A member of the RNA family "Group II catalytic intron D1-D4-3", 169 nucleotides long. Rfam's curators put it in the seed alignment. Rfam links the family to the GO term Group II intron splicing.
[Rfam]
RNA sequence: UCCUGGGCGACCAGGGGUCCGGUAGAAGUCAUAGGUGCAACGCCGUAUCGAACGAGAGUGAAGCGCCGUAAGGCAUCUGGACCGGGUGAGUCAGCCCACGGUGAUGAAGCCCGAAAUCGGUUGGUGGUCCAGUGGUAGUGGCGACGAGAUGGCGUUGAAGUCUGCUGGU
Numbered sequence: 001u002c003c004u005g006g007g008c009g010a011c012c013a014g015g016g017g018u019c020c021g022g023u024a025g026a027a028g029u030c031a032u033a034g035g036u037g038c039a040a041c042g043c044c045g046u047a048u049c050g051a052a053c054g055a056g057a058g059u060g061a062a063g064c065g066c067c068g069u070a071a072g073g074c075a076u077c078u079g080g081a082c083c084g085g086g087u088g089a090g091u092c093a094g095c096c097c098a099c100g101g102u103g104a105u106g107a108a109g110c111c112c113g114a115a116a117u118c119g120g121u122u123g124g125u126g127g128u129c130c131a132g133u134g135g136u137a138g139u140g141g142c143g144a145c146g147a148g149a150u151g152g153c154g155u156u157g158a159a160g161u162c163u164g165c166u167g168g169u
Stems, first nucleotide, its partner, number of pairs: 001016006028169004035161002040155007048147003064143004073136002077132006084112004090105004
Dot-bracket structure: ((((((....))))))...........((((...((...(((((((.(((.............((((.....((..((((((.((((..((((........))))...))))..............))))))..))...)))).))).)))))))....))....))))